[Rfam]
RNA sequence: UGCAGUGAUGUUGUAAUUUGUGUCUAACUCUGUUCUCAGUGACAGUUGCCUGCUGUCCUUCAAGCUGGUUCAGAAGACUGAUGAAAAUUGUUACUGGGGA
Numbered sequence: 001u002g003c004a005g006u007g008a009u010g011u012u013g014u015a016a017u018u019u020g021u022g023u024c025u026a027a028c029u030c031u032g033u034u035c036u037c038a039g040u041g042a043c044a045g046u047u048g049c050c051u052g053c054u055g056u057c058c059u060u061c062a063a064g065c066u067g068g069u070u071c072a073g074a075a076g077a078c079u080g081a082u083g084a085a086a087a088u089u090g091u092u093a094c095u096g097g098g099g100a
Stems, first nucleotide, its partner, number of pairs: 001100001003098001021083004030073003039065002041057005
The record is a 100-nucleotide RNA sequence from Nannospalax galili, which matches "Small nucleolar RNA SNORD16" in Rfam. The family's RNA type in Rfam is C/D-box small nucleolar RNA. Clan: SNORD16 clan.